Overview: The family of this 88-nucleotide sequence from Lathyrus oleraceus is "Small nucleolar RNA R38". For this family Rfam cites "Antisense snoRNAs: a family of nucleolar RNAs with long complementarities to rRNA" (Bachellerie et al., Trends Biochem Sci, 1995).
RNA sequence: UGUUGUGGAUGAUGAGAAUAUGAAUUUAACAGUUAUCCCUGUCUGAUACUGCAGUGCAGGUGCUGAAAAUUUGUUAUCUGACACGCUU
Numbered sequence: 001u002g003u004u005g006u007g008g009a010u011g012a013u014g015a016g017a018a019u020a021u022g023a024a025u026u027u028a029a030c031a032g033u034u035a036u037c038c039c040u041g042u043c044u045g046a047u048a049c050u051g052c053a054g055u056g057c058a059g060g061u062g063c064u065g066a067a068a069a070u071u072u073g074u075u076a077u078c079u080g081a082c083a084c085g086c087u088u
Stems, first nucleotide, its partner, number of pairs: 002087001004085004